This 78-nucleotide RNA from Mola mola belongs to the Rfam family "mir-96 microRNA precursor family". The base pairs follow the family's consensus structure, which was predicted with RNAalifold. The family has 29 seed sequences and 691 matches in Rfam 15.1.

[Rfam]
RNA sequence: UCGCCCAUUUUGGCACUAGCACAUUUUUGCUUGGUUCCUCGCUGUUUGAGCAAUCAUGGGUAGUGCCAAGAUAGGACA
Numbered sequence: 001u002c003g004c005c006c007a008u009u010u011u012g013g014c015a016c017u018a019g020c021a022c023a024u025u026u027u028u029g030c031u032u033g034g035u036u037c038c039u040c041g042c043u044g045u046u047u048g049a050g051c052a053a054u055c056a057u058g059g060g061u062a063g064u065g066c067c068a069a070g071a072u073a074g075g076a077c078a
Stems, first nucleotide, its partner, number of pairs: 004075002007072002010069008019061002022058003027053006
Dot-bracket structure: ...((.((.((((((((.((.(((..((((((...............))))))..))).)))))))))).)).))...